[Rfam]
RNA sequence: GGUUUGCAGGCAGUGUAGUUAGCUGAUUGCCAGUGGGAUUGGGACAAUCGCUACUCACACUACCAUCAAAAC
Dot-bracket structure: ..((((..((.(((((.(.(((.((((((.(...........).))))))))).).))))).))..))))..
Numbered sequence: 001g002g003u004u005u006g007c008a009g010g011c012a013g014u015g016u017a018g019u020u021a022g023c024u025g026a027u028u029g030c031c032a033g034u035g036g037g038a039u040u041g042g043g044a045c046a047a048u049c050g051c052u053a054c055u056c057a058c059a060c061u062a063c064c065a066u067c068a069a070a071a072c
Stems, first nucleotide, its partner, number of pairs: 003070004009064002012061005018055001020053003024050006031043001
This 72-nucleotide RNA sequence from Chiloscyllium punctatum belongs to the Rfam family "mir-34 microRNA precursor family". Rfam links the family to the GO terms miRNA-mediated post-transcriptional gene silencing and RISC complex. The family is grouped with related families in Rfam's "mir-34 clan". Rfam describes the family as follows. Human mir-34a was discovered computationally and later experimentally verified. The mature sequence is excised from the 5' arm of the hairpin.